[Rfam]
RNA: DUF3800-VIII RNA
RNA sequence: UGCGCCCUGCGCAAGCCGAAGCCCUGCGUACCUACGCGGGGUAUUUUUGUAGGCUGCGCCGGUGCGCA
Numbered sequence: 001u002g003c004g005c006c007c008u009g010c011g012c013a014a015g016c017c018g019a020a021g022c023c024c025u026g027c028g029u030a031c032c033u034a035c036g037c038g039g040g041g042u043a044u045u046u047u048u049g050u051a052g053g054c055u056g057c058g059c060c061g062g063u064g065c066g067c068a
Stems, first nucleotide, its partner, number of pairs: 001068005006062002009059005015054003021042009